Overview:
Rfam assigns this 81-nucleotide RNA sequence from Balaenoptera physalus to the family "Small nucleolar RNA SNORD115". NCBI's taxonomy places the organism under Eukaryota, Teleostomi, Theria, Artiodactyla, Balaenoptera. The match comes from Rfam's covariance-model search (77 bits). By type it is a C/D-box small nucleolar RNA. Gene Ontology terms of the family: RNA processing and nucleolus. The base pairs follow the family's consensus structure, which was predicted with PFOLD.
RNA sequence: GGGUCUAUGAUGAGAACUCAUAUGGUCCUGAAGAGAGAGAAUGACCUAAAUGUCAUGCUCAAUAGGAUUACACUGAGGCGC
Numbered sequence: 001g002g003g004u005c006u007a008u009g010a011u012g013a014g015a016a017c018u019c020a021u022a023u024g025g026u027c028c029u030g031a032a033g034a035g036a037g038a039g040a041a042u043g044a045c046c047u048a049a050a051u052g053u054c055a056u057g058c059u060c061a062a063u064a065g066g067a068u069u070a071c072a073c074u075g076a077g078g079c080g081c
Stems, first nucleotide, its partner, number of pairs: 001081001003079002005075001008072002